[Rfam]
RNA sequence: GGGCAAUGAAGAGGAUGAAGAAAGUCAUGCACCACUCUGAUCUGAUGUAUGAAUCAGUGCUGAUACAACUUCUUAUACCCAUAUUAUCUGAGCCC
Numbered sequence: 001g002g003g004c005a006a007u008g009a010a011g012a013g014g015a016u017g018a019a020g021a022a023a024g025u026c027a028u029g030c031a032c033c034a035c036u037c038u039g040a041u042c043u044g045a046u047g048u049a050u051g052a053a054u055c056a057g058u059g060c061u062g063a064u065a066c067a068a069c070u071u072c073u074u075a076u077a078c079c080c081a082u083a084u085u086a087u088c089u090g091a092g093c094c095c
Base pairs, nucleotide, nucleotide: 001095002094003093004092
RNA: Small nucleolar RNA Z221/R21b